This 107-nucleotide RNA from Anoxynatronum buryatiense belongs to the Rfam family "Glycine riboswitch aptamer". The organism belongs to Anoxynatronum, within Bacteria. Its family is annotated with glycine biosynthetic process in the Gene Ontology.
Nucleotides: 107
Base pairs, nucleotide, nucleotide: 006102007101008100009099010098011097012096013095019035020034021033022032037087038086039085040083041082044081045080046079050074051073052072053071054070055069056068057067
Number, partner (000 for none) and nucleotide at each position: 001000a002000u003000g004000a005000a006102g007101g008100u009099c010098a011097c012096g013095g014000g015000a016000g017000a018000u019035c020034u021033c022032u023000g024000a025000a026000u027000g028000a029000c030000a031000a032022g033021g034020a035019g036000a037087g038086c039085c040083g041082a042000a043000g044081a045080a046079g047000c048000a049000a050074u051073a052072u053071a054070c055069c056068g057067g058000a059000c060000u061000g062000g063000a064000c065000c066000c067057c068056u069055g070054g071053u072052a073051u074050a075000g076000a077000a078000u079046c080045u081044u082041u083040c084000a085039g086038g087037c088000a089000a090000c091000a092000g093000g094000a095013u096012c097011g098010u099009g100008g101007c102006u103000g104000g105000a106000c107000g